[Rfam]
This 115-nucleotide sequence from Corticibacter populi belongs to the Rfam family "Glycine riboswitch aptamer". Rfam describes the family as follows. This family represents the bacterial glycine riboswitch.
RNA sequence: CAGAACUUGUCAGGAGAGCGCUGCGCCCCAUCACACAGGUGCGCAGCCGCCGAAGGCGCAGGUAGGCCAGAGAGGCUGCCACAAAACGCUCAGGCAAAAGGACUGGCAAACAGCG
Numbered sequence: 001c002a003g004a005a006c007u008u009g010u011c012a013g014g015a016g017a018g019c020g021c022u023g024c025g026c027c028c029c030a031u032c033a034c035a036c037a038g039g040u041g042c043g044c045a046g047c048c049g050c051c052g053a054a055g056g057c058g059c060a061g062g063u064a065g066g067c068c069a070g071a072g073a074g075g076c077u078g079c080c081a082c083a084a085a086a087c088g089c090u091c092a093g094g095c096a097a098a099a100g101g102a103c104u105g106g107c108a109a110a111c112a113g114c115g
Base pairs, nucleotide, nucleotide: 007109008108009107010106011105012104013103020047021046022045023044024043025042026041049095050094051093052091053090056089057088058087062082063081